Betaproteobacteria toxic small RNA: a 62-nucleotide RNA from Massilia horti. The organism belongs to Massilia, within Bacteria. A search with the family's covariance model found it, with a score of 66 bits. From the family's description: Overexpression in amino aid rich medium attenuates growth, suggesting role in repressing amino acid intake and metabolism. The family has 51 seed sequences and 951 matches in Rfam 15.1. The literature on the family includes a 2012 paper in Genome Res by Kimelman et al., "A vast collection of microbial genes that are toxic to bacteria".
RNA sequence: UGUCUCCUCUAUUCUCCUCCAAGGAAUAGAUUCAGCCCGCCCCUCCAGGCGGGCUUUUUUUU
Numbered sequence: 001u002g003u004c005u006c007c008u009c010u011a012u013u014c015u016c017c018u019c020c021a022a023g024g025a026a027u028a029g030a031u032u033c034a035g036c037c038c039g040c041c042c043c044u045c046c047a048g049g050c051g052g053g054c055u056u057u058u059u060u061u062u
Stems, first nucleotide, its partner, number of pairs: 008030006014023001034055008